[Rfam]
RNA sequence: GUUAUCGGAUUCACCUCAAUCCACAUGUGUUGGAGCGGAUUGGAGUAGAAUUUAGUUUAGGUUCCACUCCAAUCCACCCCAACACAUGUGGAUUGAUGCUGCAUCCAAAC
Numbered sequence: 001g002u003u004a005u006c007g008g009a010u011u012c013a014c015c016u017c018a019a020u021c022c023a024c025a026u027g028u029g030u031u032g033g034a035g036c037g038g039a040u041u042g043g044a045g046u047a048g049a050a051u052u053u054a055g056u057u058u059a060g061g062u063u064c065c066a067c068u069c070c071a072a073u074c075c076a077c078c079c080c081a082a083c084a085c086a087u088g089u090g091g092a093u094u095g096a097u098g099c100u101g102c103a104u105c106c107a108a109a110c
Base pairs, nucleotide, nucleotide: 005108007106008105009104010103012101013100014098016096017095018094019093020092021091022090023089024088025087026086027085028084029083030082031081032080035077037075038074039073040072041071042070043069045067046066
A member of the RNA family "MIR5565 microRNA precursor family" from Sorghum bicolor, 110 nucleotides long. Rfam 15.1 lists 3,346 matches to the family in 5 species.